The record is a 131-nucleotide sequence from Ophiocordyceps sinensis, which matches "Group II catalytic intron D1-D4-7" in Rfam. Rfam 15.1 lists 1,296 matches to the family in 705 species. The match comes from Rfam's covariance-model search (52 bits). The pairing is the family consensus, mapped onto this sequence. A reference for the family is Chu et al. (2001), "Control of branch-site choice by a group II intron", EMBO J. From the family's description: Group II introns are found in rRNA, tRNA and mRNA of organelles in fungi, plants and protists, and also in mRNA in bacteria.
RNA sequence: UUUGGUAUUUUCUCUACCUAACACUAUUUACACAUGCAAAUUAGUAAUGAUUUGUGUGAAGCUGUAAAUACAAUGUAGCCUCUCUUAAAUGGGAAUGUUAAUAUAGACAUAAUUUAUAUAUUACCAGGAGC
Numbered sequence: 001u002u003u004g005g006u007a008u009u010u011u012c013u014c015u016a017c018c019u020a021a022c023a024c025u026a027u028u029u030a031c032a033c034a035u036g037c038a039a040a041u042u043a044g045u046a047a048u049g050a051u052u053u054g055u056g057u058g059a060a061g062c063u064g065u066a067a068a069u070a071c072a073a074u075g076u077a078g079c080c081u082c083u084c085u086u087a088a089a090u091g092g093g094a095a096u097g098u099u100a101a102u103a104u105a106g107a108c109a110u111a112a113u114u115u116a117u118a119u120a121u122u123a124c125c126a127g128g129a130g131c
Stems, first nucleotide, its partner, number of pairs: 002020001004018004028067005033058011081094004096118003104111002